[Rfam]
A member of the RNA family "Small nucleolar RNA SNORD59" from Chelydra serpentina, 71 nucleotides long.
The match comes from Rfam's covariance-model search (66 bits).
Rfam links the family to the GO terms nucleolus and RNA processing.
RNA sequence: CCUUCGCUGAUGAUCCAGGAUGACUUUCGUUCUUCUGAGCAAGCUGAAGCCAGGACCCUGAUCUGAGGAGG
Numbered sequence: 001c002c003u004u005c006g007c008u009g010a011u012g013a014u015c016c017a018g019g020a021u022g023a024c025u026u027u028c029g030u031u032c033u034u035c036u037g038a039g040c041a042a043g044c045u046g047a048a049g050c051c052a053g054g055a056c057c058c059u060g061a062u063c064u065g066a067g068g069a070g071g
Stems, first nucleotide, its partner, number of pairs: 001071003005067001